[Rfam]
RNA sequence: UUGUGUUUAUGACAUGGCUAGAUUAAAACCUUCAGGACAUCUAGUUGCUGAUGUUGCCACAC
Numbered sequence: 001u002u003g004u005g006u007u008u009a010u011g012a013c014a015u016g017g018c019u020a021g022a023u024u025a026a027a028a029c030c031u032u033c034a035g036g037a038c039a040u041c042u043a044g045u046u047g048c049u050g051a052u053g054u055u056g057c058c059a060c061a062c
Base pairs, nucleotide, nucleotide: 002061003060004059005058015047016046017045018044019043020042021041022040023039029036030035

Shown here is a 62-nucleotide RNA sequence from Python bivittatus, a member of the family "Selenocysteine insertion sequence 1".
Rfam 15.1 lists 3,793 matches to the family in 721 species.
The literature on the family includes a 2002 paper in Biochimie by Lambert et al., "A survey of metazoan selenocysteine insertion sequences".
A search with the family's covariance model found it, with a score of 35 bits.
It is annotated as a cis-regulatory element.
The family's consensus secondary structure is taken from published work.